[Rfam]
Nucleotides: 134
Base pairs, nucleotide, nucleotide: 002058003057004056005055018046019045020044021043022042023041024040025039026038028036072126073125074124085111086110087109088108089107
Number, partner (000 for none) and nucleotide at each position: 001000c002058g003057c004056a005055g006000c007000c008000c009000a010000g011000u012000c013000a014000a015000a016000u017000u018046c019045g020044g021043u022042c023041c024040c025039u026038g027000u028036c029000c030000c031000u032000c033000a034000g035000u036028g037000u038026c039025g040024g041023g042022g043021a044020c045019c046018g047000g048000c049000c050000a051000c052000c053000g054000g055005c056004u057003g058002c059000u060000a061000c062000a063000g064000c065000g066000a067000c068000c069000u070000c071000c072126g073125u074124g075000c076000u077000c078000c079000a080000u081000g082000u083000g084000g085111u086110c087109c088108g089107u090000g091000u092000c093000c094000c095000c096000u097000c098000c099000c100000a101000u102000g103000g104000g105000a106000c107089a108088u109087g110086g111085g112000a113000g114000a115000c116000g117000g118000a119000u120000c121000c122000c123000c124074c125073a126072c127000g128000g129000a130000c131000a132000c133000a134000u

Shown here is a 134-nucleotide RNA from Sclerurus mexicanus, a member of the family "Small nucleolar RNA SNORA5".
Pairs were carried over by alignment from the consensus structure, which was predicted with RNAfold.
Rfam 15.1 lists 2,226 matches to the family in 629 species.
Taxonomically the source falls in Sclerurus (Eukaryota, Metazoa, Coelurosauria, Telluraves).
ACA5 is a member of the H/ACA class of snoRNA that guide the sites of modification of uridines to pseudouridines.